[Rfam]
RNA sequence: UAAACCACCAAAGUGGUUGUGAAAAUGUUUAUUGUUUGUAAUUCAUAUCACAGCCAGCUUUGGUGAGUUUAG
Numbered sequence: 001u002a003a004a005c006c007a008c009c010a011a012a013g014u015g016g017u018u019g020u021g022a023a024a025a026u027g028u029u030u031a032u033u034g035u036u037u038g039u040a041a042u043u044c045a046u047a048u049c050a051c052a053g054c055c056a057g058c059u060u061u062g063g064u065g066a067g068u069u070u071a072g
Stems, first nucleotide, its partner, number of pairs: 006065008014056009026047003
The family of this 72-nucleotide RNA from Euroglyphus maynei is "mir-2 microRNA precursor family". The source organism's lineage runs through Eukaryota, Ecdysozoa, Panarthropoda, Acari and Euroglyphus. A search with the family's covariance model found it, with a score of 70 bits. Its family is annotated with RISC complex and miRNA-mediated post-transcriptional gene silencing in the Gene Ontology. The literature on the family includes a 2001 paper in Cell by Ambros, "microRNAs: tiny regulators with great potential".